[Rfam]
RNA sequence: AUAAUUAGUCGCCUAAAUGGUGGCUUUUUUUAUAGCCGAAAAUCAGUAAAUCAAACCUUUUAAAGGGGUACAUCAAAUUG
Numbered sequence: 001a002u003a004a005u006u007a008g009u010c011g012c013c014u015a016a017a018u019g020g021u022g023g024c025u026u027u028u029u030u031u032a033u034a035g036c037c038g039a040a041a042a043u044c045a046g047u048a049a050a051u052c053a054a055a056c057c058u059u060u061u062a063a064a065g066g067g068g069u070a071c072a073u074c075a076a077a078u079u080g
Stems, first nucleotide, its partner, number of pairs: 007025007035047002038044002055069006
RNA: Aggregatibacter sRNA 82
Organism: Vespertiliibacter pulmonis